[Rfam]
RNA sequence: CCAAAGGCUCUUUUAAGAGCCACCCAUUUCAUCUGUGAAAGAGCA
Numbered sequence: 001c002c003a004a005a006g007g008c009u010c011u012u013u014u015a016a017g018a019g020c021c022a023c024c025c026a027u028u029u030c031a032u033c034u035g036u037g038a039a040a041g042a043g044c045a
Stems, first nucleotide, its partner, number of pairs: 006021006
RNA: Histone 3' UTR stem-loop